[Rfam]
RNA sequence: UGGAGGCUUGAGAAGGUGGAGCAGUCUCCUCUACUGCUUCUUACUGGUAAUAUCCUCCUACAGGAACUGCUGCAUUUGUAUUUUAUCUGCCUGUUCCUACUGGGAAAUAGGUCUGCAAGCUGCAGCUACAUACAAAUA
Numbered sequence: 001u002g003g004a005g006g007c008u009u010g011a012g013a014a015g016g017u018g019g020a021g022c023a024g025u026c027u028c029c030u031c032u033a034c035u036g037c038u039u040c041u042u043a044c045u046g047g048u049a050a051u052a053u054c055c056u057c058c059u060a061c062a063g064g065a066a067c068u069g070c071u072g073c074a075u076u077u078g079u080a081u082u083u084u085a086u087c088u089g090c091c092u093g094u095u096c097c098u099a100c101u102g103g104g105a106a107a108u109a110g111g112u113c114u115g116c117a118a119g120c121u122g123c124a125g126c127u128a129c130a131u132a133c134a135a136a137u138a
Stems, first nucleotide, its partner, number of pairs: 002058005015045004019039007077130003082125002089120002
Small nucleolar RNA SNORA47: a 138-nucleotide RNA from Aquarana catesbeiana. Taxonomically the source falls in Aquarana (Eukaryota, Dipnotetrapodomorpha, Batrachia, Anura). The base pairs follow the family's consensus structure, which was predicted with WAR. On this family, see Huttenhofer et al., EMBO J 2001: "RNomics: an experimental approach that identifies 201 candidates for novel, small, non-messenger RNAs in mouse". A search with the family's covariance model found it, with a score of 54 bits. Its family is annotated with nucleolus and RNA processing in the Gene Ontology.